[Rfam]
Nucleotides: 069
Base pairs, nucleotide, nucleotide: 001068002067003066004065
Number, partner (000 for none) and nucleotide at each position: 001068g002067u003066g004065c005000u006000g007000u008000g009000g010000u011000g012000u013000a014000u015000u016000g017000u018000c019000a020000a021000c022000a023000c024000a025000u026000c027000a028000u029000c030000c031000u032000g033000a034000a035000g036000a037000g038000a039000a040000g041000u042000a043000u044000g045000c046000a047000g048000u049000g050000a051000c052000u053000u054000c055000c056000u057000g058000u059000g060000a061000c062000u063000g064000a065004g066003c067002a068001c069000a